[Rfam]
RNA sequence: CGCGGUCUGUGCUUCUCGACAGGAACAAUGAAUCCUCGGGGCCAUACCCGAUCCUUAGGGAGCUGUCCCUGACCAGGCUCGUGGGCCUGGACAUACGGCGCCCACCUACGUAAGUAGGCGCCCAGGAUCGAAAGCUUCCAUCGGUUGUCUCGGAUCGCAC
Numbered sequence: 001c002g003c004g005g006u007c008u009g010u011g012c013u014u015c016u017c018g019a020c021a022g023g024a025a026c027a028a029u030g031a032a033u034c035c036u037c038g039g040g041g042c043c044a045u046a047c048c049c050g051a052u053c054c055u056u057a058g059g060g061a062g063c064u065g066u067c068c069c070u071g072a073c074c075a076g077g078c079u080c081g082u083g084g085g086c087c088u089g090g091a092c093a094u095a096c097g098g099c100g101c102c103c104a105c106c107u108a109c110g111u112a113a114g115u116a117g118g119c120g121c122c123c124a125g126g127a128u129c130g131a132a133a134g135c136u137u138c139c140a141u142c143g144g145u146u147g148u149c150u151c152g153g154a155u156c157g158c159a160c
Base pairs, nucleotide, nucleotide: 002158003157004156005155006154007153008152009151011149012147015144017143018142019141033127034126035125036124038123039122040121041119042118043117058103059102060101062099063098064097065096066095073090074089075088076087077086
The record is a 160-nucleotide RNA sequence from Rhizobium sp. YS-1r, which matches "6S / SsrS RNA" in Rfam.
It is annotated as a non-coding RNA gene.
On this family, see Wassarman and Storz, Cell 2000: "6S RNA regulates E. coli RNA polymerase activity".
It scores 79 bits against the family's covariance model.
Rfam describes the family as follows. E. coli 6S RNA was the first non coding RNA to be sequenced, but its function was unknown until recently.